[Rfam]
RNA sequence: ACAGUUCCGGUUCACGUCUGUCAUAGGGGCAUGGCGACCCGGUGCC
Numbered sequence: 001a002c003a004g005u006u007c008c009g010g011u012u013c014a015c016g017u018c019u020g021u022c023a024u025a026g027g028g029g030c031a032u033g034g035c036g037a038c039c040c041g042g043u044g045c046c
Stems, first nucleotide, its partner, number of pairs: 004045002007042004015036004019031004

Shown here is a 46-nucleotide sequence from Bifidobacterium aquikefiri, a member of the family "L31-Actinobacteria ribosomal protein leader". The family's RNA type in Rfam is cis-regulatory leader. It scores 37 bits against the family's covariance model. Its Rfam clan is "Ribosomal Protein L31 Leader clan".